MIR5272 microRNA precursor family: a 74-nucleotide sequence from Medicago truncatula. Pairs were carried over by alignment from the consensus structure, which was predicted with RNAalifold. Taxonomically the source falls in Medicago (Eukaryota, Gunneridae, Pentapetalae, Fabales). A search with the family's covariance model found it, with a score of 87 bits. Gene Ontology terms of the family: miRNA-mediated post-transcriptional gene silencing and RISC complex.
[Rfam]
RNA sequence: UUGAAUGUGAAUUGAUUUAUGUUUGGAUACACUUUACUAGAAGUGAUUCUUGUUAGUUGAUGUUGUUUGAAUAA
Numbered sequence: 001u002u003g004a005a006u007g008u009g010a011a012u013u014g015a016u017u018u019a020u021g022u023u024u025g026g027a028u029a030c031a032c033u034u035u036a037c038u039a040g041a042a043g044u045g046a047u048u049c050u051u052g053u054u055a056g057u058u059g060a061u062g063u064u065g066u067u068u069g070a071a072u073a074a
Stems, first nucleotide, its partner, number of pairs: 011061007021053002025049004030045005